The family of this 67-nucleotide RNA sequence from Prolemur simus is "Small Nucleolar RNA SNORD64". The base pairs follow the family's consensus structure, which was predicted with RNAalifold. A reference for the family is Cavaille et al. (2000), "Identification of brain-specific and imprinted small nucleolar RNA genes exhibiting an unusual genomic organization", Proc Natl Acad Sci U S A. Taxonomically the source falls in Prolemur (Eukaryota, Vertebrata, Gnathostomata, Euteleostomi).

RNA sequence: GGAUUUAUGGUGAGCUGUGUUUACUGAGCAAAAUGAAGGGAAGCUCAAAAUUAUUACUCUGAAGUCC
Numbered sequence: 001g002g003a004u005u006u007a008u009g010g011u012g013a014g015c016u017g018u019g020u021u022u023a024c025u026g027a028g029c030a031a032a033a034u035g036a037a038g039g040g041a042a043g044c045u046c047a048a049a050a051u052u053a054u055u056a057c058u059c060u061g062a063a064g065u066c067c
Base pairs, nucleotide, nucleotide: 001067002066003065004064005063012059013058014057020053025047026046027045028044029043